Rfam assigns this 394-nucleotide RNA sequence from Scopulibacillus darangshiensis to the family "Bacterial RNase P class B".
RNA sequence: ACGUUUGGGUAAUCGCUGUAGCUGCCUUUCGCGGCUAUAGAGGAAAGUCCAUGCUCGCACGAUCUGAGAUGGUCGUAGUGUUCGUGCCUAGUGAAAAGAUAAGCUAGGGUAGUCCGGCUAUUGCUGGACUAACGGCAAGAGAAACGCCUAAGUCUAUUGAUAUGGCCGAGUAUCUUUGAAAGUGCCACAGUGACGGAGUUCUGCCGGAAACGGACGGAAGUGGAACGAGGUAAACCCCGCGAGCGAGAAACUCAAAUUUGGUAGAGGAACUCUCCUGAAGGAAAUGAACGGACGGAGGGACAGGCUAAUCAGCCCUGUAGAUAGAUGAUUACCGCCGCUGUACGAGGACGUCUCGUCCGCUUUAGUACAAUGGAACAGAACAUGGCUUACAAAA
Numbered sequence: 001a002c003g004u005u006u007g008g009g010u011a012a013u014c015g016c017u018g019u020a021g022c023u024g025c026c027u028u029u030c031g032c033g034g035c036u037a038u039a040g041a042g043g044a045a046a047g048u049c050c051a052u053g054c055u056c057g058c059a060c061g062a063u064c065u066g067a068g069a070u071g072g073u074c075g076u077a078g079u080g081u082u083c084g085u086g087c088c089u090a091g092u093g094a095a096a097a098g099a100u101a102a103g104c105u106a107g108g109g110u111a112g113u114c115c116g117g118c119u120a121u122u123g124c125u126g127g128a129c130u131a132a133c134g135g136c137a138a139g140a141g142a143a144a145c146g147c148c149u150a151a152g153u154c155u156a157u158u159g160a161u162a163u164g165g166c167c168g169a170g171u172a173u174c175u176u177u178g179a180a181a182g183u184g185c186c187a188c189a190g191u192g193a194c195g196g197a198g199u200u201c202u203g204c205c206g207g208a209a210a211c212g213g214a215c216g217g218a219a220g221u222g223g224a225a226c227g228a229g230g231u232a233a234a235c236c237c238c239g240c241g242a243g244c245g246a247g248a249a250a251c252u253c254a255a256a257u258u259u260g261g262u263a264g265a266g267g268a269a270c271u272c273u274c275c276u277g278a279a280g281g282a283a284a285u286g287a288a289c290g291g292a293c294g295g296a297g298g299g300a301c302a303g304g305c306u307a308a309u310c311a312g313c314c315c316u317g318u319a320g321a322u323a324g325a326u327g328a329u330u331a332c333c334g335c336c337g338c339u340g341u342a343c344g345a346g347g348a349c350g351u352c353u354c355g356u357c358c359g360c361u362u363u364a365g366u367a368c369a370a371u372g373g374a375a376c377a378g379a380a381c382a383u384g385g386c387u388u389a390c391a392a393a394a
Base pairs, nucleotide, nucleotide: 004394005393006392007390008333009332010331011330012329013328014327016040017039018038019037020036021035022034023033045388046387047386049385050384051383052382053381054247055246056245057244058243059076060075061074062073063072064071082242083241084240085239086238087108088107089106090105091104092103109133110131111130112129113128114127115126116125117124118123134237135236137176138175139174140173146166147165148164152161153160154159182235183234184231185230186229199219200218201217202216203215204213205212206211251266252265253264270299271298272297273296274295275294300318301317302316303315304314335373336372337371339369340368341367342366343365

By type it is a ribozyme.